About this RNA
This 234-nucleotide RNA belongs to the Rfam family "RT-15 RNA". By type it is a small RNA. Pairs were carried over by alignment from the consensus structure, which is taken from published work.

[Rfam]
RNA sequence: CAGCGCCUGUUCCAUGAUCGCCAAGGUGACCAUGGCCGUGCGUGAUUUUGAUCUGGUCGCGCCGCUGGGCAGCCCGGGAAAUGGGCGGCCCACCGACAUGCGCAGCACGGAUACCUCCGGUCAACUGUCACUGUUCGACCGGGCAGAGCAUGAACACGGGUCCGGCGCAGUUUCCUUGCCGAUCGACGCCACCAUGGGUCUUCGGCAAGGCGACGUGGAUAGCGCGAGCGGAUG
Numbered sequence: 001c002a003g004c005g006c007c008u009g010u011u012c013c014a015u016g017a018u019c020g021c022c023a024a025g026g027u028g029a030c031c032a033u034g035g036c037c038g039u040g041c042g043u044g045a046u047u048u049u050g051a052u053c054u055g056g057u058c059g060c061g062c063c064g065c066u067g068g069g070c071a072g073c074c075c076g077g078g079a080a081a082u083g084g085g086c087g088g089c090c091c092a093c094c095g096a097c098a099u100g101c102g103c104a105g106c107a108c109g110g111a112u113a114c115c116u117c118c119g120g121u122c123a124a125c126u127g128u129c130a131c132u133g134u135u136c137g138a139c140c141g142g143g144c145a146g147a148g149c150a151u152g153a154a155c156a157c158g159g160g161u162c163c164g165g166c167g168c169a170g171u172u173u174c175c176u177u178g179c180c181g182a183u184c185g186a187c188g189c190c191a192c193c194a195u196g197g198g199u200c201u202u203c204g205g206c207a208a209g210g211c212g213a214c215g216u217g218g219a220u221a222g223c224g225c226g227a228g229c230g231g232a233u234g
Base pairs, nucleotide, nucleotide: 004042005041006040012035013034014033015032016031018029019028020027021026057227058226059225060224061223062222063095064094066092067091068090069089070088099169100168101167102166103165108164109163110162111161114160115159117142118141119140120139121138171213172212174210175209176208177207178206179205180204181203182202